[Rfam]
RNA sequence: UCACCCGUCAUUGGGGAGUAGCCGCCCUGCAGCACCUGCAGGGGCUUGCGUCAACACACUUGGCCCACCGGCCAUGGCGCAGGCAGCAGCGACCACGUCGCCCGCCUGGCAAGACCGAUGACCGUGCUGCCU
Numbered sequence: 001u002c003a004c005c006c007g008u009c010a011u012u013g014g015g016g017a018g019u020a021g022c023c024g025c026c027c028u029g030c031a032g033c034a035c036c037u038g039c040a041g042g043g044g045c046u047u048g049c050g051u052c053a054a055c056a057c058a059c060u061u062g063g064c065c066c067a068c069c070g071g072c073c074a075u076g077g078c079g080c081a082g083g084c085a086g087c088a089g090c091g092a093c094c095a096c097g098u099c100g101c102c103c104g105c106c107u108g109g110c111a112a113g114a115c116c117g118a119u120g121a122c123c124g125u126g127c128u129g130c131c132u
Stems, first nucleotide, its partner, number of pairs: 026042003044084010061074005
The record is a 132-nucleotide RNA from Rhizobacter sp. Root29, which matches "Manganese Mn2+ riboswitch aptamer (yybP-ykoY)" in Rfam. Lineage of the source: Bacteria > Pseudomonadati > Pseudomonadota > Sphaerotilaceae > Rhizobacter.